[Rfam]
RNA sequence: AACAAGGUAUGCUUUAGAUAACUCGAAUAUCACAUCUUCAGUGUUCGAAAUCUGAUGAGAUAUUCACGUUGUCUAAAUCAUGUUUUGUA
Numbered sequence: 001a002a003c004a005a006g007g008u009a010u011g012c013u014u015u016a017g018a019u020a021a022c023u024c025g026a027a028u029a030u031c032a033c034a035u036c037u038u039c040a041g042u043g044u045u046c047g048a049a050a051u052c053u054g055a056u057g058a059g060a061u062a063u064u065c066a067c068g069u070u071g072u073c074u075a076a077a078u079c080a081u082g083u084u085u086u087g088u089a
Base pairs, nucleotide, nucleotide: 002088003087004086005085006084008082009081010080011079013077014076015075016074017073018072019071020070021069022068025065026064027063028062029061030060031059035058036057038055039054040053041052

Rfam assigns this 89-nucleotide RNA from Drosophila melanogaster to the family "mir-977 microRNA precursor family". It is one of the family's seed sequences. Rfam 15.1 lists 3 matches to the family in 3 species. The organism belongs to Sophophora, within Eukaryota.